[Rfam]
RNA: msiK RNA
RNA sequence: GAACGGGGUUCCAUCACAACGGAUCGUCCGGCACGUACCUGCCGGUGAAGGAGAAGAGAAAA
Dot-bracket structure: .........(((.(((...........((((((......))))))))).)))..........